This 88-nucleotide RNA from Sarcina ventriculi belongs to the Rfam family "pan motif".
The base pairs follow the family's consensus structure, which is taken from published work.
By type it is a cis-regulatory element.
Taxonomically the source falls in Sarcina (Bacteria, Bacillati, Clostridia, Eubacteriales).
RNA sequence: AGGAUGGUAUCUUAUGAACCAUACUAUUAUUUAUUUUGAUUAUAUUUGAAUUAAAAACGCUCAUACUUAUGAUGAGAUGAGACGAGAU
Number, nucleotide and partner (000 for none) at each position: 001a000002g025003g024004a022005u021006g020007g019008u018009a000010u017011c016012u000013u000014a000015u000016g011017a010018a008019c007020c006021a005022u004023a000024c003025u002026a000027u000028u000029a000030u000031u000032u000033a000034u000035u000036u000037u000038g000039a000040u000041u000042a000043u000044a000045u000046u000047u000048g000049a000050a000051u000052u000053a000054a000055a000056a000057a000058c084059g083060c081061u080062c079063a078064u077065a000066c076067u075068u074069a000070u000071g000072a000073u000074g068075a067076g066077a064078u063079g062080a061081g060082a000083c059084g058085a000086g000087a000088u000